Shown here is a 62-nucleotide sequence from Jaculus jaculus, a member of the family "U7 small nuclear RNA".
[Rfam]
RNA sequence: AAGUAUUACAGCUCUUUUUGAAUUUGUCUAGCCGGUUUUCUAGUUUAUGCUGGAAAACCAUA
Dot-bracket structure: .................................(((((((((((....)))))))))))...
The match comes from Rfam's covariance-model search (68 bits).
About the family: Animal histone pre-mRNAs are spliced by a different mechanism than nuclear pre-mRNAs and self-splicing introns.
NCBI's taxonomy places the organism under Eukaryota, Metazoa, Craniata, Dipodinae, Jaculus.